[Rfam]
RNA sequence: UAAGUCCCUGUCAGGCGCCGGAGCAGACGCCGUGUUUAUACGGGCGGCUGCUCCGGCAUCUGACAGGACAACAGGUAUGAGCAUGGAGGGCGGCAGCCCGGAAUGUGAAUACCUGUUAAGGAUUGCGAGAGCAGCAGGGCUGCGAAGCAAUCCGGGGACUUA
Numbered sequence: 001u002a003a004g005u006c007c008c009u010g011u012c013a014g015g016c017g018c019c020g021g022a023g024c025a026g027a028c029g030c031c032g033u034g035u036u037u038a039u040a041c042g043g044g045c046g047g048c049u050g051c052u053c054c055g056g057c058a059u060c061u062g063a064c065a066g067g068a069c070a071a072c073a074g075g076u077a078u079g080a081g082c083a084u085g086g087a088g089g090g091c092g093g094c095a096g097c098c099c100g101g102a103a104u105g106u107g108a109a110u111a112c113c114u115g116u117u118a119a120g121g122a123u124u125g126c127g128a129g130a131g132c133a134g135c136a137g138g139g140c141u142g143c144g145a146a147g148c149a150a151u152c153c154g155g156g157g158a159c160u161u162a
Stems, first nucleotide, its partner, number of pairs: 001162007008066004014060002017057010028046002030043005071116008081106004088099004120153007131143004
RNA: Clostridiales-1 RNA